RNA: RT-15 RNA
Organism: Ralstonia pickettii
RNA sequence: CGUCGCCCGUUGCAUCACCGUCAAGGCGGUAAUGCCUGUGCGAAUUUAAUCUGGUCGUGCCGCUGGCCCACAAGGUCACCGCAAUGCGCACCACGGAUACCGCCGGAUGUUUCCGGAACCGGUCCGGCGCAGUUUCCACGCUGAUCGGCAAAUGCCUUCGGCGAGGCGACGUAGAUAGCACGAUGAAACG
Dot-bracket structure: ...(((.....((((.(((((....))))).))))....)))............((((((((.(((((.....))))).))...(((((....((((..((.(((((....)))))....))))))))))).((.((.((((((..(((....))).)))))).)).))........)))))).......
Numbered sequence: 001c002g003u004c005g006c007c008c009g010u011u012g013c014a015u016c017a018c019c020g021u022c023a024a025g026g027c028g029g030u031a032a033u034g035c036c037u038g039u040g041c042g043a044a045u046u047u048a049a050u051c052u053g054g055u056c057g058u059g060c061c062g063c064u065g066g067c068c069c070a071c072a073a074g075g076u077c078a079c080c081g082c083a084a085u086g087c088g089c090a091c092c093a094c095g096g097a098u099a100c101c102g103c104c105g106g107a108u109g110u111u112u113c114c115g116g117a118a119c120c121g122g123u124c125c126g127g128c129g130c131a132g133u134u135u136c137c138a139c140g141c142u143g144a145u146c147g148g149c150a151a152a153u154g155c156c157u158u159c160g161g162c163g164a165g166g167c168g169a170c171g172u173a174g175a176u177a178g179c180a181c182g183a184u185g186a187a188a189c190g
Stems, first nucleotide, its partner, number of pairs: 004042003012035004017030005055183006061081002064078005085131005094126004100122002103116005133169002136166002139163006147156003